[Rfam]
RNA sequence: GUGCAGUGAUGUUAAACUGUCAACACAUCAUUCUGAAGAAUUGUGUGGAGACUUUGUGAAACUGAGCACC
Numbered sequence: 001g002u003g004c005a006g007u008g009a010u011g012u013u014a015a016a017c018u019g020u021c022a023a024c025a026c027a028u029c030a031u032u033c034u035g036a037a038g039a040a041u042u043g044u045g046u047g048g049a050g051a052c053u054u055u056g057u058g059a060a061a062c063u064g065a066g067c068a069c070c
Stems, first nucleotide, its partner, number of pairs: 001069004
This 70-nucleotide RNA sequence from Climacteris rufus belongs to the Rfam family "Small nucleolar RNA SNORD63". The family's RNA type in Rfam is C/D-box small nucleolar RNA. About the family: snoRNA U63 is found in both humans and mice. Rfam links the family to the GO terms RNA processing and nucleolus. The source organism's lineage runs through Eukaryota, Coelurosauria, Aves, Neognathae and Climacteris.